[Rfam]
RNA sequence: UGACGGACUUCUGGAGAGAUUCUGCAAGACAGAACACCGAAGGGGCAAGGCGAUUUUUCGCUCAAUCUCUCAGGUAAAAGGACAGAAGGAAAAUG
Numbered sequence: 001u002g003a004c005g006g007a008c009u010u011c012u013g014g015a016g017a018g019a020u021u022c023u024g025c026a027a028g029a030c031a032g033a034a035c036a037c038c039g040a041a042g043g044g045g046c047a048a049g050g051c052g053a054u055u056u057u058u059c060g061c062u063c064a065a066u067c068u069c070u071c072a073g074g075u076a077a078a079a080g081g082a083c084a085g086a087a088g089g090a091a092a093a094u095g
Stems, first nucleotide, its partner, number of pairs: 008088006020034004036075003039071002043069003049062005
RNA: Glycine riboswitch aptamer
Organism: Streptococcus hillyeri